Shown here is a 74-nucleotide RNA from Terriglobus saanensis, a member of the family "Fluoride riboswitch aptamer (crcB RNA motif)". Lineage of the source: Bacteria > Pseudomonadati > Terriglobia > Terriglobus > Terriglobus saanensis. It scores 50 bits against the family's covariance model. Pairs were carried over by alignment from the consensus structure, which is taken from published work.

RNA sequence: AACAACCUGGGCGAUGGGGUUCCGCCACUAACCGCACGCGCUGUAUGCGCGGAGCUGAUGACUCCUACGAGACA
Numbered sequence: 001a002a003c004a005a006c007c008u009g010g011g012c013g014a015u016g017g018g019g020u021u022c023c024g025c026c027a028c029u030a031a032c033c034g035c036a037c038g039c040g041c042u043g044u045a046u047g048c049g050c051g052g053a054g055c056u057g058a059u060g061a062c063u064c065c066u067a068c069g070a071g072a073c074a
Stems, first nucleotide, its partner, number of pairs: 010026004016065006034055002037052001